[Rfam]
RNA sequence: GAGUGACCGAUCUCUCUUGGUGCUUAGAGGCUAAAGUUUUAAUCUAGCACCAUUGGAAAUCGGUUAUGA
Numbered sequence: 001g002a003g004u005g006a007c008c009g010a011u012c013u014c015u016c017u018u019g020g021u022g023c024u025u026a027g028a029g030g031c032u033a034a035a036g037u038u039u040u041a042a043u044c045u046a047g048c049a050c051c052a053u054u055g056g057a058a059a060u061c062g063g064u065u066a067u068g069a
Base pairs, nucleotide, nucleotide: 003067004066005064007063008062009061010060011059013057014056015055018052019051020050021049022048025046026045027044028043

mir-29 microRNA precursor family: a 69-nucleotide RNA from Aquarana catesbeiana. Rfam 15.1 lists 3,328 matches to the family in 787 species. About the family: This family represents the microRNA (miRNA) precursors mir-29. The organism belongs to Aquarana, within Eukaryota. The match comes from Rfam's covariance-model search (58 bits).